[Rfam]
RNA: Small Cajal body specific RNA 6
RNA sequence: GGUCAGUGAUGUGAUGUAAAAGGUCUGAAGCCCAGAUCUCCUCCCAGUUCCUAUGUUCCUCCCAGCAGCCCCGGCUGUGUUCCCAGCAUGCUCUAGGUGUGCGUGUUUGGUUUGCGGGGCAGCUGAUAUUGAGGGAGACGCUGCUGAGUGUGCGUCUGAGAGAGAAGCGAGACGCAGACGUACAGCAGCGUCCGACAGGAACACUGCACACAGGAGGGCGGAGCUGUGCCGCGAGACCACACAGGCGGCUCAUGAUCUCCAGUUUUCAAGCUGAGACC
Number, nucleotide and partner (000 for none) at each position: 001g278002g277003u276004c275005a000006g000007u000008g000009a000010u000011g000012u000013g000014a000015u000016g000017u000018a000019a000020a000021a000022g000023g000024u000025c000026u000027g000028a000029a000030g000031c000032c000033c000034a258035g257036a256037u255038c254039u000040c000041c235042u234043c233044c000045c231046a000047g229048u228049u000050c000051c000052u000053a000054u000055g000056u000057u000058c000059c216060u215061c214062c213063c125064a124065g123066c122067a000068g120069c119070c000071c000072c000073g000074g000075c000076u000077g000078u000079g000080u000081u000082c110083c109084c000085a107086g106087c105088a104089u103090g102091c101092u000093c000094u000095a000096g000097g000098u000099g000100u000101g091102c090103g089104u088105g087106u086107u085108u000109g083110g082111u000112u000113u000114g000115c000116g000117g000118g000119g069120c068121a000122g066123c065124u064125g063126a000127u000128a000129u000130u000131g000132a000133g193134g000135g000136a000137g192138a191139c190140g189141c188142u187143g000144c000145u000146g000147a000148g179149u178150g000151u176152g175153c174154g173155u172156c171157u170158g000159a000160g000161a000162g000163a000164g000165a000166a000167g000168c000169g000170a157171g156172a155173c154174g153175c152176a151177g000178a149179c148180g000181u000182a000183c000184a000185g000186c000187a142188g141189c140190g139191u138192c137193c133194g000195a000196c000197a000198g000199g000200a000201a000202c000203a000204c000205u000206g000207c000208a000209c000210a000211c000212a000213g062214g061215a060216g059217g000218g000219c000220g000221g000222a000223g000224c000225u000226g000227u000228g048229c047230c000231g045232c000233g043234a042235g041236a000237c000238c000239a000240c000241a000242c000243a000244g000245g000246c000247g000248g000249c000250u000251c000252a000253u000254g038255a037256u036257c035258u034259c000260c000261a000262g000263u000264u000265u000266u000267c000268a000269a000270g000271c000272u000273g000274a000275g004276a003277c002278c001